Rfam assigns this 204-nucleotide RNA sequence to the family "FuFi-1 RNA". It is one of the family's seed sequences. It is annotated as a small RNA.
RNA sequence: AUCAUCAACUAACGGGCCAACCUUUAACUAGCUUUUUUUGAAGGCUAUCAUGCAGAACUGAAACCGCAUAAGUGAUGAUGCGUACAUAGAAGCAUUAUGCGCUAUAUAGUGUAGUGAUUAAGCUUUAUACUUUUUCGCUUGCAUACGUAAAGAGUAAACAAAUUCAGGCAAACGUCAGUAAGAAUAGCGCUCUUAUUGACGUUU
Number, nucleotide and partner (000 for none) at each position: 001a079002u078003c077004a076005u075006c074007a073008a000009c000010u000011a000012a000013c000014g000015g000016g000017c000018c000019a000020a000021c000022c000023u000024u000025u000026a000027a000028c000029u000030a000031g000032c000033u000034u000035u000036u000037u000038u000039u000040g000041a000042a000043g000044g000045c000046u000047a000048u000049c000050a000051u068052g067053c066054a000055g064056a000057a000058c167059u166060g165061a164062a163063a000064c055065c000066g053067c052068a051069u000070a000071a000072g000073u007074g006075a005076u004077g003078a002079u001080g148081c147082g146083u145084a144085c000086a000087u000088a000089g000090a000091a000092g112093c111094a110095u109096u108097a107098u106099g000100c189101g188102c187103u186104a185105u184106a098107u097108a096109g095110u094111g093112u092113a139114g138115u137116g136117a135118u000119u000120a132121a131122g130123c000124u000125u000126u000127a000128u000129a000130c122131u121132u120133u000134u000135u117136c116137g115138c114139u113140u000141g000142c000143a000144u084145a083146c082147g081148u080149a000150a000151a000152g000153a000154g000155u000156a000157a000158a000159c000160a000161a000162a000163u062164u061165c060166a059167g058168g000169c000170a000171a000172a202173c201174g200175u199176c198177a197178g196179u195180a194181a193182g192183a191184a105185u104186a103187g102188c101189g100190c000191u183192c182193u181194u180195a179196u178197u177198g176199a175200c174201g173202u172203u000204u000